[Rfam]
About this RNA: Rfam assigns this 81-nucleotide sequence from Flavobacterium rivulicola to the family "Flavo-1 RNA".

RNA sequence: AACUAGCCCCGAUUGAAGUGGAAAUCCUUUUUUGGUUUGUUCACAAACCAAAAAAGAUUGCAGCGUAAAGCGGGAAUAGCU
Numbered sequence: 001a002a003c004u005a006g007c008c009c010c011g012a013u014u015g016a017a018g019u020g021g022a023a024a025u026c027c028u029u030u031u032u033u034g035g036u037u038u039g040u041u042c043a044c045a046a047a048c049c050a051a052a053a054a055a056g057a058u059u060g061c062a063g064c065g066u067a068a069a070g071c072g073g074g075a076a077u078a079g080c081u
Stems, first nucleotide, its partner, number of pairs: 009073003013069002018064002023059004029054010
By type it is a small RNA.
NCBI's taxonomy places the organism under Bacteria, Pseudomonadati, Flavobacteriia, Flavobacteriales, Flavobacterium.
A search with the family's covariance model found it, with a score of 79 bits.